[Rfam]
RNA sequence: CCAAAGUGGAGUUCAGAAACCACUAAAAUAAACGAGGAGUUACCGAAAAGCCUUACGAGUAGGAAAAAC
Dot-bracket structure: .....((((..........))))............((.....[[......)).........]]......

Overview:
The record is a 69-nucleotide sequence from Flavobacterium sp., which matches "DUF805 RNA" in Rfam. A search with the family's covariance model found it, with a score of 73 bits. By type it is a cis-regulatory element. Its Rfam clan is "DUF805 clan". Pairs were carried over by alignment from the consensus structure, which is taken from published work. Taxonomically the source falls in Flavobacterium (Bacteria, Pseudomonadati, Flavobacteriales, Flavobacteriaceae).